[Rfam]
RNA sequence: GUGGGCUACGGGGAUAUGCACCCCGUGACCAUUGGGGGGAAGAUUGUAGGGUCUCUGUGCGCCAUCGCGGGCGUGCUCACAAUUGCCCUCCCCGUCCCUGUCAUUGUCUCCAAU
Numbered sequence: 001g002u003g004g005g006c007u008a009c010g011g012g013g014a015u016a017u018g019c020a021c022c023c024c025g026u027g028a029c030c031a032u033u034g035g036g037g038g039g040a041a042g043a044u045u046g047u048a049g050g051g052u053c054u055c056u057g058u059g060c061g062c063c064a065u066c067g068c069g070g071g072c073g074u075g076c077u078c079a080c081a082a083u084u085g086c087c088c089u090c091c092c093c094g095u096c097c098c099u100g101u102c103a104u105u106g107u108c109u110c111c112a113a114u
Stems, first nucleotide, its partner, number of pairs: 001114002004111002008107004013102004018097001020095002037077002040074001049063002
Record summary: Potassium channel RNA editing signal: a 114-nucleotide RNA from Takifugu flavidus. Rfam links the family to the GO term adenosine to inosine editing. A search with the family's covariance model found it, with a score of 105 bits. The organism belongs to Takifugu, within Eukaryota. The base pairs follow the family's consensus structure, which is taken from published work. This family represents a group of sequences related to the human potassium channel Kv1.1 hairpin element which directs the efficient modification of an adenosine to inosine by an adenosine deaminase acting on RNA (ADAR). The ADAR modification causes an isoleucine/valine recoding event which lies in the ion-conducting pore of the potassium channel. A reference for the family is Bhalla et al. (2004), "Control of human potassium channel inactivation by editing of a small mRNA hairpin", Nat Struct Mol Biol.